[Rfam]
About this RNA
A member of the RNA family "Small nucleolar RNA SNORA22" from Oryzias latipes, 137 nucleotides long. Rfam links the family to the GO terms nucleolus and RNA processing. The source organism's lineage runs through Eukaryota, Euteleostomi, Neoteleostei, Euacanthomorphacea and Oryzias. The sequence is in the family's curated seed alignment. About the family: ACA22 is a member of the H/ACA class of snoRNA that guide the sites of modification of uridines to pseudouridines.

RNA sequence: GUGCACAGUGAACACCCAAGGAUGCUGCUGUGGCUCUCCCUGGUCUCCUCUAUCUGUGCUACAGUAACUCUGAUCUGUACCUCUGCAUUGGGACAGUCUCCUCCUCUCCUACAUGUAUUCAACAGAUCAGAAUAAUC
Numbered sequence: 001g002u003g004c005a006c007a008g009u010g011a012a013c014a015c016c017c018a019a020g021g022a023u024g025c026u027g028c029u030g031u032g033g034c035u036c037u038c039c040c041u042g043g044u045c046u047c048c049u050c051u052a053u054c055u056g057u058g059c060u061a062c063a064g065u066a067a068c069u070c071u072g073a074u075c076u077g078u079a080c081c082u083c084u085g086c087a088u089u090g091g092g093a094c095a096g097u098c099u100c101c102u103c104c105u106c107u108c109c110u111a112c113a114u115g116u117a118u119u120c121a122a123c124a125g126a127u128c129a130g131a132a133u134a135a136u137c
Stems, first nucleotide, its partner, number of pairs: 003059006010053001014049001016043003020039001022037001024034003061076001063074001065072002084121002086115003090110004095105002
The family's consensus secondary structure was predicted with RNAfold.